[Rfam]
This 206-nucleotide RNA from Andreesenia angusta belongs to the Rfam family "Group II catalytic intron D1-D4-5". From the family's description: Group II introns are found in rRNA, tRNA and mRNA of organelles in fungi, plants and protists, and also in mRNA in bacteria. Gene Ontology term of the family: Group II intron splicing. For this family Rfam cites "The ins and outs of group II introns" (Bonen and Vogel, Trends Genet, 2001).
RNA sequence: CCCAACUGAUUAAUGAAAUCUGGAAUGAAAGCCGUCACGUUGGCUGAAACGGAUUGUCUGAUACUCCACUAUGCGCCAGGUAAUUAGCAGUUGCUUGGGGUUUAAAGCGUGGUAAAGUCGGUUGAGAGUACACCCUAAGGGCGGAAAUGCCACAGGAAAAGCGAAUUGGAGGCAAUCGAGUGUAUGAUAGGCCGGGACGCUAAAAG
Numbered sequence: 001c002c003c004a005a006c007u008g009a010u011u012a013a014u015g016a017a018a019u020c021u022g023g024a025a026u027g028a029a030a031g032c033c034g035u036c037a038c039g040u041u042g043g044c045u046g047a048a049a050c051g052g053a054u055u056g057u058c059u060g061a062u063a064c065u066c067c068a069c070u071a072u073g074c075g076c077c078a079g080g081u082a083a084u085u086a087g088c089a090g091u092u093g094c095u096u097g098g099g100g101u102u103u104a105a106a107g108c109g110u111g112g113u114a115a116a117g118u119c120g121g122u123u124g125a126g127a128g129u130a131c132a133c134c135c136u137a138a139g140g141g142c143g144g145a146a147a148u149g150c151c152a153c154a155g156g157a158a159a160a161g162c163g164a165a166u167u168g169g170a171g172g173c174a175a176u177c178g179a180g181u182g183u184a185u186g187a188u189a190g191g192c193c194g195g196g197a198c199g200c201u202a203a204a205a206g
Base pairs, nucleotide, nucleotide: 017055018054019053020052021051022050030045031044032043033042056198057197058196059195066112067111068110069109070104071103073101074100076098077097078096079095080094081093082092083091119194120193121192122191123190128185129184130183131182132181133180134156135155136154140151141150162178163177165176166175167174168173